[Rfam]
RNA sequence: GGGGACGACAUUGGUUUCGACUGUUGUUGGCUUGGAUUCAGUGGCACGUAGGGGUGAGGGACCUCUUAAAAACCUUCAAAACAAUAACUGCAAAUAACGAAUUUGCUCUAGCAGCUUAAUUUUAAGCUCUACGGUUUCCAUGGCUGUUUCCUUAGGUGGCCAAGAAACCGACACCUCUCUAAGGACCUUUCGGAUCUGUCGCCCGCUUCGGGCCGAAUUGAACUCUAAGUAGGAUAGGAAUGAGUCCCCCGUUUGUAGGGUAAGUCUUUCCGAAAUUCAUUUGCAAACUAAACGUGUAGAAGCUGCAUUUGAGGACGAUAGGACCCGGGUUCGACUCCCGGCGUCUCCAAAA
Numbered sequence: 001g002g003g004g005a006c007g008a009c010a011u012u013g014g015u016u017u018c019g020a021c022u023g024u025u026g027u028u029g030g031c032u033u034g035g036a037u038u039c040a041g042u043g044g045c046a047c048g049u050a051g052g053g054g055u056g057a058g059g060g061a062c063c064u065c066u067u068a069a070a071a072a073c074c075u076u077c078a079a080a081a082c083a084a085u086a087a088c089u090g091c092a093a094a095u096a097a098c099g100a101a102u103u104u105g106c107u108c109u110a111g112c113a114g115c116u117u118a119a120u121u122u123u124a125a126g127c128u129c130u131a132c133g134g135u136u137u138c139c140a141u142g143g144c145u146g147u148u149u150c151c152u153u154a155g156g157u158g159g160c161c162a163a164g165a166a167a168c169c170g171a172c173a174c175c176u177c178u179c180u181a182a183g184g185a186c187c188u189u190u191c192g193g194a195u196c197u198g199u200c201g202c203c204c205g206c207u208u209c210g211g212g213c214c215g216a217a218u219u220g221a222a223c224u225c226u227a228a229g230u231a232g233g234a235u236a237g238g239a240a241u242g243a244g245u246c247c248c249c250c251g252u253u254u255g256u257a258g259g260g261u262a263a264g265u266c267u268u269u270c271c272g273a274a275a276u277u278c279a280u281u282u283g284c285a286a287a288c289u290a291a292a293c294g295u296g297u298a299g300a301a302g303c304u305g306c307a308u309u310u311g312a313g314g315a316c317g318a319u320a321g322g323a324c325c326c327g328g329g330u331u332c333g334a335c336u337c338c339c340g341g342c343g344u345c346u347c348c349a350a351a352a
Stems, first nucleotide, its partner, number of pairs: 001348007021321008034310004039305004045296005050066005055078006109131003113128003132170006139164001141162002144159004149185007186220001189217005201235001203233002237271004242266002245263001247260003251288007325341005